[Rfam]
A member of the RNA family "Bacterial small subunit ribosomal RNA" from Treponema parvum, 351 nucleotides of a longer RNA. Rfam 15.1 lists 42,628 matches to the family in 10,626 species. Lineage of the source: Bacteria > Spirochaetota > Spirochaetia > Treponematales > Treponema. The literature on the family includes a 2001 paper in Science by Yusupov et al., "Crystal structure of the ribosome at 5.5 A resolution".
RNA sequence: GGCGUAAAGGGCAUCUAGGCGGUCAUUCAAGCUUGGUGUGAAAUACCGGGGCUUAACUCCGGGGCUGCAUUGAGAACUGGAUGACUGGAGUCACUGAAGGGCAACCAGAAUUCCAGGUGUAGGGGUGAAAUCUGUAGAUAUCUGGAAGAAUACCAAUGGCGAAGGCAGGUUACCGGCAGAUGACUGACGCUGAAGUGCGAAGGUGCGGGGAGCAAACAGGAUUAGAUACCCUGGUAGUCCGCACAGUCAACAAUGUACACUCGGUGUCCGGCCAAGAGGCUGGGUGCCAAAGCAAACGCGAUAAGUGUACCGCCUGGGGAGUAUGCCCGCAAGGGUGAAACUCAAAGGAAU
Dot-bracket structure: (((.....(.((((.(.(((.(((((((.(((((((((((.....((((((.....))))))...)))))))))..)))))))))...(((..(((...((.(((((...((((((((...(((......)))......))))))))...).......((....)).)))).))..)))...)))...))))..))))....((((((...((...((((.........))))...))))))))..........((((((..(((((((((((....)))))))))))...((....)).....)))))))))).(((......((((....))))....)))........
Numbered sequence: 001g002g003c004g005u006a007a008a009g010g011g012c013a014u015c016u017a018g019g020c021g022g023u024c025a026u027u028c029a030a031g032c033u034u035g036g037u038g039u040g041a042a043a044u045a046c047c048g049g050g051g052c053u054u055a056a057c058u059c060c061g062g063g064g065c066u067g068c069a070u071u072g073a074g075a076a077c078u079g080g081a082u083g084a085c086u087g088g089a090g091u092c093a094c095u096g097a098a099g100g101g102c103a104a105c106c107a108g109a110a111u112u113c114c115a116g117g118u119g120u121a122g123g124g125g126u127g128a129a130a131u132c133u134g135u136a137g138a139u140a141u142c143u144g145g146a147a148g149a150a151u152a153c154c155a156a157u158g159g160c161g162a163a164g165g166c167a168g169g170u171u172a173c174c175g176g177c178a179g180a181u182g183a184c185u186g187a188c189g190c191u192g193a194a195g196u197g198c199g200a201a202g203g204u205g206c207g208g209g210g211a212g213c214a215a216a217c218a219g220g221a222u223u224a225g226a227u228a229c230c231c232u233g234g235u236a237g238u239c240c241g242c243a244c245a246g247u248c249a250a251c252a253a254u255g256u257a258c259a260c261u262c263g264g265u266g267u268c269c270g271g272c273c274a275a276g277a278g279g280c281u282g283g284g285u286g287c288c289a290a291a292g293c294a295a296a297c298g299c300g301a302u303a304a305g306u307g308u309a310c311c312g313c314c315u316g317g318g319g320a321g322u323a324u325g326c327c328c329g330c331a332a333g334g335g336u337g338a339a340a341c342u343c344a345a346a347g348g349a350a351u
Stems, first nucleotide, its partner, number of pairs: 001314003009311001011198004016192001018191003022085007030078002032074009046062006089185003094179003100174002103171004107151001111147008122133003159166002203244006212238002217233004255310006263288011292299002316343003325336004